ffh sRNA: a 52-nucleotide sequence from Methyloligella sp. GL2.
Taxonomically the source falls in Methyloligella (Bacteria, Pseudomonadati, Alphaproteobacteria, Hyphomicrobiales).
The base pairs follow the family's consensus structure, which is taken from published work.
On this family, see Meyer et al., BMC Genomics 2009: "Identification of candidate structured RNAs in the marine organism 'Candidatus Pelagibacter ubique'".
RNA sequence: AGGUAAGGGGGUCAACAUCCGUCAGCGCGAUGCGCCCACGGAUGCGCUACUG
Numbered sequence: 001a002g003g004u005a006a007g008g009g010g011g012u013c014a015a016c017a018u019c020c021g022u023c024a025g026c027g028c029g030a031u032g033c034g035c036c037c038a039c040g041g042a043u044g045c046g047c048u049a050c051u052g
Stems, first nucleotide, its partner, number of pairs: 016044007025035004